[Rfam]
RNA: mir-544 microRNA precursor family
RNA sequence: AUCACCUGGAUAUCUUGUUAAAAUGCAGAUUCUGGUUCAGGAGGUCAGGGAAGAGACCCAAGAUUCUGCAUUGCUAACAAGCUGUCGGGUGGUAUCAA
Numbered sequence: 001a002u003c004a005c006c007u008g009g010a011u012a013u014c015u016u017g018u019u020a021a022a023a024u025g026c027a028g029a030u031u032c033u034g035g036u037u038c039a040g041g042a043g044g045u046c047a048g049g050g051a052a053g054a055g056a057c058c059c060a061a062g063a064u065u066c067u068g069c070a071u072u073g074c075u076a077a078c079a080a081g082c083u084g085u086c087g088g089g090u091g092g093u094a095u096c097a098a
Stems, first nucleotide, its partner, number of pairs: 003091003009085001014081007022072002025069005031063003